The record is a 110-nucleotide RNA from Papaver somniferum, which matches "Small nucleolar RNA Z279/snoR105/snoR108" in Rfam. The family has 20 seed sequences and 906 matches in Rfam 15.1. About the family: This family includes the plant snoRNAs known as Z279, snoR105 and snoR108. The literature on the family includes a 2002 paper in Curr Biol by Marker et al., "Experimental RNomics: identification of 140 candidates for small non-messenger RNAs in the plant Arabidopsis thaliana". By type it is a C/D-box small nucleolar RNA. Clan: snoU13 clan.
RNA sequence: GGGAAAUGAUGAGUGGUCAAAACUGGCAAACUCUAUGCGAGAAUUGGGUGUCCAGCCUAAGCCUGGUUACGACAAUAUGGGCACUCCCCUUUUGUUACCCUUCUGAUCCC
Number, nucleotide and partner (000 for none) at each position: 001g110002g109003g108004a107005a000006a000007u000008g000009a000010u000011g000012a000013g000014u000015g099016g098017u097018c000019a000020a000021a000022a000023c041024u040025g000026g038027c037028a000029a000030a000031c000032u000033c000034u000035a000036u000037g027038c026039g000040a024041g023042a000043a000044u000045u000046g086047g085048g084049u083050g082051u081052c080053c000054a000055g000056c000057c000058u000059a000060a000061g000062c000063c000064u079065g078066g076067u075068u000069a000070c000071g000072a000073c000074a000075a067076u066077a000078u065079g064080g052081g051082c050083a049084c048085u047086c046087c000088c000089c000090u000091u000092u000093u000094g000095u000096u000097a017098c016099c015100c000101u000102u000103c000104u000105g000106a000107u004108c003109c002110c001